[Rfam]
Rfam assigns this 167-nucleotide sequence from Synaphobranchus kaupii to the family "U1 spliceosomal RNA".
The family's consensus secondary structure is taken from published work.
A search with the family's covariance model found it, with a score of 90 bits.
The source organism's lineage runs through Eukaryota, Chordata, Teleostei, Anguilliformes and Synaphobranchus.
About the family: U1 is a small nuclear RNA (snRNA) component of the spliceosome (involved in pre-mRNA splicing).
Its Rfam clan is "U1 clan".
RNA sequence: AUGUUGAUGUUGAGUUGUAAAAAAAAAAAAAAAAAAAAAAAAGGUUCACCCAGGACGAGGCUCAGCCAUUGCACUCCGGUUGUGCUGACCCCUGCGAAUUCCCCAAAUGUGGGAAUCUCGACUGCAUUAUUUCUGGUAGUGGGGGACUGCGUUCGCGCUCUCCCCUG
Numbered sequence: 001a002u003g004u005u006g007a008u009g010u011u012g013a014g015u016u017g018u019a020a021a022a023a024a025a026a027a028a029a030a031a032a033a034a035a036a037a038a039a040a041a042a043g044g045u046u047c048a049c050c051c052a053g054g055a056c057g058a059g060g061c062u063c064a065g066c067c068a069u070u071g072c073a074c075u076c077c078g079g080u081u082g083u084g085c086u087g088a089c090c091c092c093u094g095c096g097a098a099u100u101c102c103c104c105a106a107a108u109g110u111g112g113g114a115a116u117c118u119c120g121a122c123u124g125c126a127u128u129a130u131u132u133c134u135g136g137u138a139g140u141g142g143g144g145g146a147c148u149g150c151g152u153u154c155g156c157g158c159u160c161u162c163c164c165c166u167g
Stems, first nucleotide, its partner, number of pairs: 001045002004042002052093003057089001059086003063082005095120003098116003102112002141166006149158003